Rfam assigns this 112-nucleotide sequence from Filimonas zeae to the family "SAM riboswitch aptamer (S box leader)". NCBI's taxonomy places the organism under Bacteria, Pseudomonadati, Chitinophagia, Chitinophagales, Filimonas.

RNA sequence: CACUUAUCAAGAAAGGCAGAGGGAUAUGGCCCGAUGAAGCCUUGGCAACCACACACGGUACGUGUGAAAGGUGCCAAUUCCAUCACGUUUACCCAAACGUGAGAGAUAAGUC
Number, nucleotide and partner (000 for none) at each position: 001c000002a111003c110004u109005u108006a107007u106008c105009a000010a000011g000012a000013a043014a042015g041016g040017c039018a000019g000020a000021g032022g031023g030024a000025u000026a083027u082028g081029g080030c023031c022032c021033g000034a000035u000036g000037a000038a000039g017040c016041c015042u014043u013044g075045g074046c073047a072048a000049c071050c070051a000052c066053a065054c064055a000056c000057g000058g000059u000060a000061c000062g000063u000064g054065u053066g052067a000068a000069a000070g050071g049072u047073g046074c045075c044076a000077a000078u000079u104080c029081c028082a027083u026084c101085a100086c099087g098088u097089u096090u000091a000092c000093c000094c000095a000096a089097a088098c087099g086100u085101g084102a000103g000104a079105g008106a007107u006108a005109a004110g003111u002112c000